[Rfam]
RNA sequence: AGCCGCUGAUGACUCUCUCAAACAUUUUUCUGACACCUUCUAUGAGGGCUGCACUGCAGUCUUUGAUUAAAAAUUUAAACCUGAGGCUU
Numbered sequence: 001a002g003c004c005g006c007u008g009a010u011g012a013c014u015c016u017c018u019c020a021a022a023c024a025u026u027u028u029u030c031u032g033a034c035a036c037c038u039u040c041u042a043u044g045a046g047g048g049c050u051g052c053a054c055u056g057c058a059g060u061c062u063u064u065g066a067u068u069a070a071a072a073a074u075u076u077a078a079a080c081c082u083g084a085g086g087c088u089u
Base pairs, nucleotide, nucleotide: 001088002087003086004085048060049059050058051057052056
Dot-bracket structure: ((((...........................................(((((...)))))........................)))).

Background
This 89-nucleotide sequence from Clarias magur belongs to the Rfam family "Small nucleolar RNA SNORD60". The family's consensus secondary structure was predicted with PFOLD. Rfam classes the family as a C/D-box small nucleolar RNA. The source organism's lineage runs through Eukaryota, Opisthokonta, Deuterostomia, Otophysi and Clarias. It scores 58 bits against the family's covariance model. The family has 22 seed sequences and 825 matches in Rfam 15.1.